[Rfam]
RNA sequence: UUCUUAUCAAGAGAGAUGGAGGGACUUGGCCCUGUGAAAUCUCAGCAACAGACCUACGGGCACUGUGCUAAAUCCAGCGAGCGCAAAGCUUGGCAGAUGAGGA
Number, nucleotide and partner (000 for none) at each position: 001u103002u102003c101004u100005u099006a098007u097008c096009a000010a000011g000012a000013g043014a042015g041016a040017u039018g000019g000020a000021g032022g031023g030024a000025c000026u077027u076028g075029g074030c023031c022032c021033u000034g000035u000036g000037a000038a000039a017040u016041c015042u014043c013044a069045g068046c067047a066048a000049c065050a064051g061052a000053c059054c058055u000056a000057c000058g054059g053060g000061c051062a000063c000064u050065g049066u047067g046068c045069u044070a000071a000072a000073u095074c029075c028076a027077g026078c092079g091080a090081g089082c088083g000084c000085a000086a000087a000088g082089c081090u080091u079092g078093g000094c000095a073096g008097a007098u006099g005100a004101g003102g002103a001
RNA: SAM riboswitch aptamer (S box leader)
Organism: Listeria fleischmannii